[Rfam]
The family of this 125-nucleotide RNA sequence from Caenorhabditis brenneri is "Caenorhabditis snoRNA ceN46". Lineage of the source: Eukaryota > Bilateria > Chromadorea > Rhabditomorpha > Caenorhabditis. The literature on the family includes a 2007 paper in BMC Mol Biol by Jia et al., "Systematic identification of non-coding RNA 2,2,7-trimethylguanosine cap structures in Caenorhabditis elegans". Its family is annotated with nucleolus and RNA processing in the Gene Ontology.
Nucleotides: 125
Base pairs, nucleotide, nucleotide: 009053010052011051012050013049014048015047017043018042019041020040024036025035026034027033028032064118065117068114069113070112071111074108076106078104079103080102081101084098085097
Number, partner (000 for none) and nucleotide at each position: 001000c002000u003000u004000g005000c006000a007000c008000g009053a010052c011051u012050g013049c014048a015047a016000c017043c018042u019041g020040c021000u022000u023000u024036c025035g026034g027033a028032g029000c030000u031000u032028u033027u034026c035025c036024g037000u038000c039000u040020g041019c042018g043017g044000u045000a046000c047015u048014u049013g050012u051011a052010g053009u054000g055000c056000u057000a058000a059000a060000u061000g062000a063000g064118c065117g066000u067000g068114g069113g070112c071111c072000c073000u074108c075000c076106g077000u078104g079103u080102g081101c082000g083000u084098g085097u086000a087000a088000c089000u090000u091000c092000a093000u094000u095000g096000a097085a098084c099000u100000a101081g102080c103079a104078c105000u106076c107000c108074g109000u110000u111071g112070g113069u114068c115000a116000c117065c118064g119000g120000a121000c122000a123000a124000u125000u